[Rfam]
RNA sequence: CGGGGCCCUUAGGAGCCUGCCGGGGAUCGCCAGCGGUGCUGCCAUCGCUCUCCUUCAGUGGAUCGGCCCCCGGAGGCCCCUAAGGUCCUCG
Number, nucleotide and partner (000 for none) at each position: 001c091002g090003g089004g088005g087006c000007c085008c084009u083010u082011a081012g080013g079014a000015g077016c076017c075018u074019g000020c073021c072022g071023g070024g069025g068026a000027u000028c000029g067030c066031c065032a000033g048034c047035g046036g045037u044038g043039c000040u000041g000042c000043c038044a037045u036046c035047g034048c033049u000050c000051u062052c061053c060054u000055u000056c000057a000058g000059u000060g053061g052062a051063u000064c000065g031066g030067c029068c025069c024070c023071c022072g021073g020074a018075g017076g016077c015078c000079c013080c012081u011082a010083a009084g008085g007086u000087c005088c004089u003090c002091g001